[Rfam]
RNA sequence: CUGCACUAGGAUACGAACCUGACAGUCUGCUCCUUAGUUGCAUUUUCAACUGAGAAGCAUUCUGUGAUUGUUGGGUUUUGCAAGUGCUAUAUUAAAAAUAGCCAUGAGAUUUAAGCUCAGUGUGUGAAGCGACAUCCUGGGUUAUAACUCAGAGGCACAGAG
Numbered sequence: 001c002u003g004c005a006c007u008a009g010g011a012u013a014c015g016a017a018c019c020u021g022a023c024a025g026u027c028u029g030c031u032c033c034u035u036a037g038u039u040g041c042a043u044u045u046u047c048a049a050c051u052g053a054g055a056a057g058c059a060u061u062c063u064g065u066g067a068u069u070g071u072u073g074g075g076u077u078u079u080g081c082a083a084g085u086g087c088u089a090u091a092u093u094a095a096a097a098a099u100a101g102c103c104a105u106g107a108g109a110u111u112u113a114a115g116c117u118c119a120g121u122g123u124g125u126g127a128a129g130c131g132a133c134a135u136c137c138u139g140g141g142u143u144a145u146a147a148c149u150c151a152g153a154g155g156c157a158c159a160g161a162g
Stems, first nucleotide, its partner, number of pairs: 003087005016077004021072007028059004033054002036051005101156003120135004137152006
The family of this 162-nucleotide RNA from Polypterus senegalus is "Small Cajal body specific RNA 1". Rfam's curators write: scaRNAs are a specific class of small nuclear RNAs which localise to the Cajal bodies and guide the modification of RNA polymerase II transcribed spliceosomal RNAs U1, U2, U4, U5 and U12. ACA35 belong to the H/ACA box class of guide RNAs as it has the predicted hairpin-hinge-hairpin-tail structure, conserved H/ACA-box motifs and is found associated with GAR1. For this family Rfam cites "Cajal body-specific small nuclear RNAs: a novel class of 2'-O-methylation and pseudouridylation guide RNAs" (Darzacq et al., EMBO J, 2002).